[Rfam]
RNA sequence: AGAGCGAAACUCAUUACAGAGUCAUGGGGCCAUGAGUGUGUCGUGUCACUCCAGCCCCAUGUCCCUUGGGAAGAACAGAGACUAGGGUCAGAAGCAGCCUUAACAAGGUUUUCCCUGAGUUCCCAGAAAACGGAGCUGCUUGAGGUCAGACGGGGCAGGAGAUGCUGUAGACCCCACCACUGGGGAGGAAUUCAGGGGAAGUCUCCUAAGUGCGAGCUUGGAACAGAUUCAGUGAAAUGAGCUCAACGGCUAAGGUUAGGUACCCCACAUGGGGUCCUCAUAACCCAGUUCAGACUGCUGUCCUCU
Numbered sequence: 001a002g003a004g005c006g007a008a009a010c011u012c013a014u015u016a017c018a019g020a021g022u023c024a025u026g027g028g029g030c031c032a033u034g035a036g037u038g039u040g041u042c043g044u045g046u047c048a049c050u051c052c053a054g055c056c057c058c059a060u061g062u063c064c065c066u067u068g069g070g071a072a073g074a075a076c077a078g079a080g081a082c083u084a085g086g087g088u089c090a091g092a093a094g095c096a097g098c099c100u101u102a103a104c105a106a107g108g109u110u111u112u113c114c115c116u117g118a119g120u121u122c123c124c125a126g127a128a129a130a131c132g133g134a135g136c137u138g139c140u141u142g143a144g145g146u147c148a149g150a151c152g153g154g155g156c157a158g159g160a161g162a163u164g165c166u167g168u169a170g171a172c173c174c175c176a177c178c179a180c181u182g183g184g185g186a187g188g189a190a191u192u193c194a195g196g197g198g199a200a201g202u203c204u205c206c207u208a209a210g211u212g213c214g215a216g217c218u219u220g221g222a223a224c225a226g227a228u229u230c231a232g233u234g235a236a237a238u239g240a241g242c243u244c245a246a247c248g249g250c251u252a253a254g255g256u257u258a259g260g261u262a263c264c265c266c267a268c269a270u271g272g273g274g275u276c277c278u279c280a281u282a283a284c285c286c287a288g289u290u291c292a293g294a295c296u297g298c299u300g301u302c303c304u305c306u
Stems, first nucleotide, its partner, number of pairs: 001306004006302002010254002013251001015249001026066004034051005039045001076293001078291003096110005115232007135217003255281002258278003

The record is a 306-nucleotide RNA sequence from Mandrillus leucophaeus, which matches "Nuclear RNase P" in Rfam. Rfam 15.1 lists 3,848 matches to the family in 1,862 species. The literature on the family includes a 1999 paper in Nucleic Acids Res by Brown, "The Ribonuclease P Database". Clan: RNaseP clan. Ribonuclease P (RNase P) is a ubiquitous endoribonuclease, found in archaea, bacteria and eukarya as well as chloroplasts and mitochondria. Its best characterised activity is the generation of mature 5'-ends of tRNAs by cleaving the 5'-leader elements of precursor-tRNAs. Rfam links the family to the GO terms ribonuclease P complex, ribonuclease P activity and tRNA processing. Lineage of the source: Eukaryota > Eumetazoa > Theria > Cercopithecoidea > Mandrillus.